[Rfam]
RNA sequence: AAGCUAUGAUGAAAACUGCGCACAAUGUGGCACAAAAGGGUUCGCCACCAUCUUCAGAUCUACCUGAAGAACCAAUGUGUGCAUCUGAGCUU
Numbered sequence: 001a002a003g004c005u006a007u008g009a010u011g012a013a014a015a016c017u018g019c020g021c022a023c024a025a026u027g028u029g030g031c032a033c034a035a036a037a038g039g040g041u042u043c044g045c046c047a048c049c050a051u052c053u054u055c056a057g058a059u060c061u062a063c064c065u066g067a068a069g070a071a072c073c074a075a076u077g078u079g080u081g082c083a084u085c086u087g088a089g090c091u092u
Stems, first nucleotide, its partner, number of pairs: 001092004

Rfam assigns this 92-nucleotide RNA from Chenopodium quinoa to the family "small nucleolar RNA snoR114". It is annotated as a C/D-box small nucleolar RNA. For this family Rfam cites "Mining small RNA sequencing data: a new approach to identify small nucleolar RNAs in Arabidopsis" (Chen and Wu, Nucleic Acids Res, 2009). The match comes from Rfam's covariance-model search (61 bits). Lineage of the source: Eukaryota > Viridiplantae > Pentapetalae > Caryophyllales > Chenopodium.